[Rfam]
RNA sequence: CUUGGUGGGGGAGGUGCCUCAGCCUGGAUUGCAAGAGGACGCAGGCCAGGCCGAGGGACCCCACUGGUGCAUG
Numbered sequence: 001c002u003u004g005g006u007g008g009g010g011g012a013g014g015u016g017c018c019u020c021a022g023c024c025u026g027g028a029u030u031g032c033a034a035g036a037g038g039a040c041g042c043a044g045g046c047c048a049g050g051c052c053g054a055g056g057g058a059c060c061c062c063a064c065u066g067g068u069g070c071a072u073g
Stems, first nucleotide, its partner, number of pairs: 003071002008065002011062001013060003017056004022051003026047002029044004

The family of this 73-nucleotide RNA from Myotis lucifugus is "mir-9193 microRNA precursor family". Rfam links the family to the GO terms RISC complex and miRNA-mediated post-transcriptional gene silencing. Lineage of the source: Eukaryota > Opisthokonta > Theria > Vespertilionidae > Myotis. The base pairs follow the family's consensus structure, which was predicted with RNAalifold.